RNA sequence: GGUGGGAACGCACGGCCGCAAAUCUGACUCGCCGUCGACGCGACGGCUCGGGAUUGCGGUAGUGU
Numbered sequence: 001g002g003u004g005g006g007a008a009c010g011c012a013c014g015g016c017c018g019c020a021a022a023u024c025u026g027a028c029u030c031g032c033c034g035u036c037g038a039c040g041c042g043a044c045g046g047c048u049c050g051g052g053a054u055u056g057c058g059g060u061a062g063u064g065u
Stems, first nucleotide, its partner, number of pairs: 010065004015060007024052002031047007
Dot-bracket structure: .........((((.(((((((..((.....(((((((...)))))))...)).))))))).))))
RNA: S15-Halobacteria ribosomal protein leader